Record summary:
Rfam assigns this 97-nucleotide RNA sequence from Portunus trituberculatus to the family "mir-210 microRNA precursor family". The base pairs follow the family's consensus structure, which was predicted with WAR. The organism belongs to Portunus, within Eukaryota.
[Rfam]
RNA sequence: UCGAAUCUCACUACAGCUGCUGGACACUGCACAAGAUUAGCCAUUUGUGACUCUUGUGCGUGUGACAGCGGCUAUUGUGAAUAUUCCUACCCGUCGU
Numbered sequence: 001u002c003g004a005a006u007c008u009c010a011c012u013a014c015a016g017c018u019g020c021u022g023g024a025c026a027c028u029g030c031a032c033a034a035g036a037u038u039a040g041c042c043a044u045u046u047g048u049g050a051c052u053c054u055u056g057u058g059c060g061u062g063u064g065a066c067a068g069c070g071g072c073u074a075u076u077g078u079g080a081a082u083a084u085u086c087c088u089a090c091c092c093g094u095c096g097u
Base pairs, nucleotide, nucleotide: 008080009079010078011077015073016072017071018070019069020068021067022066025062026061028060029059030058031057032056033055035053036052
Background
It scores 71 bits against the family's covariance model.